[Rfam]
Nucleotides: 089
Stems, first nucleotide, its partner, number of pairs: 012037002017032006041082003045079003048074003055068004
Number, partner (000 for none) and nucleotide at each position: 001000c002000a003000g004000c005000a006000c007000u008000u009000c010000u011000g012037g013036c014000a015000a016000a017032c018031u019030a020029u021028u022027u023000g024000a025000a026000a027022g028021a029020a030019u031018a032017g033000g034000a035000c036013g037012c038000a039000a040000a041082g042081c043080u044000u045079c046078c047077g048074g049073u050072c051000u052000g053000u054000c055068g056067a057066u058065a059000u060000u061000c062000a063000c064000g065058u066057a067056u068055c069000u070000a071000u072050g073049a074048u075000a076000g077047c078046g079045g080043g081042g082041c083000c084000g085000c086000c087000a088000c089000u

Rfam assigns this 89-nucleotide RNA from Vibrio tapetis to the family "c-di-GMP-I riboswitch aptamer".
The base pairs follow the family's consensus structure, which is taken from published work.